[Rfam]
RNA: Small nucleolar RNA SNORA46
RNA sequence: AGCACUAUAUUUAAACCUAUGGAUGGGAAAUGUCCCCAUUCUAGGUUACGCUGUAGUGCGAGAAGAAUUCCUGGCGCCUCAUUGCACAGCUGACUCGCGCCGUUUGGCUGUUGCUCUGUGAGCUAAGGGACAUGA
Numbered sequence: 001a002g003c004a005c006u007a008u009a010u011u012u013a014a015a016c017c018u019a020u021g022g023a024u025g026g027g028a029a030a031u032g033u034c035c036c037c038a039u040u041c042u043a044g045g046u047u048a049c050g051c052u053g054u055a056g057u058g059c060g061a062g063a064a065g066a067a068u069u070c071c072u073g074g075c076g077c078c079u080c081a082u083u084g085c086a087c088a089g090c091u092g093a094c095u096c097g098c099g100c101c102g103u104u105u106g107g108c109u110g111u112u113g114c115u116c117u118g119u120g121a122g123c124u125a126a127g128g129g130a131c132a133u134g135a
Stems, first nucleotide, its partner, number of pairs: 002059008014047004021041007068130005073124003078120001080118002084114003087110004092105002